This 120-nucleotide RNA sequence from Glycine max belongs to the Rfam family "MIR1520 microRNA precursor family".
NCBI's taxonomy places the organism under Eukaryota, Tracheophyta, Fabales, Papilionoideae, Glycine subgen. Soja.
The family has 18 seed sequences and 1,934 matches in Rfam 15.1.
[Rfam]
RNA sequence: UUCUUAUUGGAUGAUGACUGUCAUGUGUCAUGUUGUGAUUAGAUGUCAACUCCGUGAAAGAUGAAAUGAAUUAUUAUUUUCAUUGACCAAUCAGAACAUGACACGUGACAAUCAUCAUUC
Dot-bracket structure: ...................((((.((..(((.((.(.(((................................................))).).)).)))..)).))))...........